[Rfam]
RNA: tRNA
RNA sequence: GCGCCCGUAGUUCAGGGGAAGAACGCCGGGUUGCGGACCCGGAGGUCGCGGGUUCAAAUCCCGCCGGGCGUA
Numbered sequence: 001g002c003g004c005c006c007g008u009a010g011u012u013c014a015g016g017g018g019a020a021g022a023a024c025g026c027c028g029g030g031u032u033g034c035g036g037a038c039c040c041g042g043a044g045g046u047c048g049c050g051g052g053u054u055c056a057a058a059u060c061c062c063g064c065c066g067g068g069c070g071u072a
Stems, first nucleotide, its partner, number of pairs: 001071007010024004026042005048064005